The record is a 101-nucleotide sequence from Peribacillus muralis, which matches "Purine riboswitch aptamer" in Rfam. The source organism's lineage runs through Bacteria, Bacillati, Caryophanales, Bacillaceae and Peribacillus.

[Rfam]
RNA sequence: AAUUCAUUAAAAAAAUAUCCUUGUAUAAUAUCAGUGACGAUGGUCUGAUAGUUUCUACCUGGCAGCCGUAAUGCCGGACUACAAGGAAGUAUGAUAAAUGG
Numbered sequence: 001a002a003u004u005c006a007u008u009a010a011a012a013a014a015a016u017a018u019c020c021u022u023g024u025a026u027a028a029u030a031u032c033a034g035u036g037a038c039g040a041u042g043g044u045c046u047g048a049u050a051g052u053u054u055c056u057a058c059c060u061g062g063c064a065g066c067c068g069u070a071a072u073g074c075c076g077g078a079c080u081a082c083a084a085g086g087a088a089g090u091a092u093g094a095u096a097a098a099u100g101g
Stems, first nucleotide, its partner, number of pairs: 018087008029050006059077006